[Rfam]
This 132-nucleotide sequence from Microcebus murinus belongs to the Rfam family "U4atac minor spliceosomal RNA". Pairs were carried over by alignment from the consensus structure, which is taken from published work. Rfam 15.1 lists 1,648 matches to the family in 818 species. Gene Ontology terms of the family: mRNA 5'-splice site recognition, pre-mRNA 5'-splice site binding and spliceosomal tri-snRNP complex assembly. A reference for the family is Lorkovic et al. (2005), "Evolutionary conservation of minor U12-type spliceosome between plants and humans", RNA.
RNA sequence: AACAUCCUUCCCUUCGGGUUGCACUACUGUUCAAUGAGCUAUGUAUAGUGAGGGUAGUACUGCUAACGCCUACAAAACACACCUGCGUCAACUAGAGCUGUGCUUUACCUUGGUUGUGCUAUCUAUAUAAAU
Numbered sequence: 001a002a003c004a005u006c007c008u009u010c011c012c013u014u015c016g017g018g019u020u021g022c023a024c025u026a027c028u029g030u031u032c033a034a035u036g037a038g039c040u041a042u043g044u045a046u047a048g049u050g051a052g053g054g055u056a057g058u059a060c061u062g063c064u065a066a067c068g069c070c071u072a073c074a075a076a077a078c079a080c081a082c083c084u085g086c087g088u089c090a091a092c093u094a095g096a097g098c099u100g101u102g103c104u105u106u107a108c109c110u111u112g113g114u115u116g117u118g119c120u121a122u123c124u125a126u127a128u129a130a131a132u
Stems, first nucleotide, its partner, number of pairs: 006018003021063003026058007038049002085119003088113003093107006

It scores 60 bits against the family's covariance model. Rfam's curators write: U4atac is an essential component of the minor U12-type spliceosome complex which is required for removal of the rarer class of eukaryotic introns (AT-AC, U12-type).